[Rfam]
Nucleotides: 061
Stems, first nucleotide, its partner, number of pairs: 034058005040053004
Number, partner (000 for none) and nucleotide at each position: 001000a002000c003000g004000c005000c006000c007000u008000g009000c010000a011000g012000c013000u014000c015000u016000u017000u018000u019000u020000g021000a022000a023000u024000u025000u026000g027000u028000c029000c030000a031000g032000c033000a034058g035057g036056u037055u038054u039000u040053c041052u042051g043050g044000c045000u046000u047000g048000u049000c050043c051042c052041a053040g054038a055037a056036g057035c058034c059000c060000c061000u
Annotation
Rfam assigns this 61-nucleotide sequence from Myotis myotis to the family "U7 small nuclear RNA". The source organism's lineage runs through Eukaryota, Metazoa, Sarcopterygii, Eutheria and Myotis.